Shown here is a 182-nucleotide RNA from Enterococcus ratti, a member of the family "Enterococcus sRNA 2410".
RNA sequence: UUAGCUACUUUAGAUAGGUUUGUAUUCAUAAUUAUGGAUGCAAACAUCAAACCAAAUUGUUUGUAUCUAUGAUGGCUAAAGAACUUUGUAUUAUACAAAAGCCACGUAGACAUUACGCUAAGUGGCUAAACGAAAAAGUACAAAGGAAUCAAUUUUUCUUACCUUUUCUUUCGAUGAUUAAU
Numbered sequence: 001u002u003a004g005c006u007a008c009u010u011u012a013g014a015u016a017g018g019u020u021u022g023u024a025u026u027c028a029u030a031a032u033u034a035u036g037g038a039u040g041c042a043a044a045c046a047u048c049a050a051a052c053c054a055a056a057u058u059g060u061u062u063g064u065a066u067c068u069a070u071g072a073u074g075g076c077u078a079a080a081g082a083a084c085u086u087u088g089u090a091u092u093a094u095a096c097a098a099a100a101g102c103c104a105c106g107u108a109g110a111c112a113u114u115a116c117g118c119u120a121a122g123u124g125g126c127u128a129a130a131c132g133a134a135a136a137a138g139u140a141c142a143a144a145g146g147a148a149u150c151a152a153u154u155u156u157u158c159u160u161a162c163c164u165u166u167u168c169u170u171u172c173g174a175u176g177a178u179u180a181a182u
Base pairs, nucleotide, nucleotide: 001079002078003077004076005075006074007073011069012068013067014066015065016064018045019044020043021042022041023040024039025038026037027036028035029034048063049062050061051060052059084145085144086143087142088141089140090139091138092137096132100127101126102125103124104123105122107120108119109118
The base pairs follow the family's consensus structure, which was predicted with RNAfold.
NCBI's taxonomy places the organism under Bacteria, Bacillota, Lactobacillales, Enterococcaceae, Enterococcus.
From the family's description: Produced as 2 transcripts on Northern blot.
The family's RNA type in Rfam is small RNA.
The literature on the family includes a 2017 paper in Sci Rep by Sinel et al., "Small RNAs in vancomycin-resistant Enterococcus faecium involved in daptomycin response and resistance".